[Rfam]
RNA sequence: CCGGCUCCGGUUCACCUCGUCGACGACAUCGGCGGGGACCCGGCGGCC
Numbered sequence: 001c002c003g004g005c006u007c008c009g010g011u012u013c014a015c016c017u018c019g020u021c022g023a024c025g026a027c028a029u030c031g032g033c034g035g036g037g038a039c040c041c042g043g044c045g046g047c048c
Stems, first nucleotide, its partner, number of pairs: 003048003007043004015037009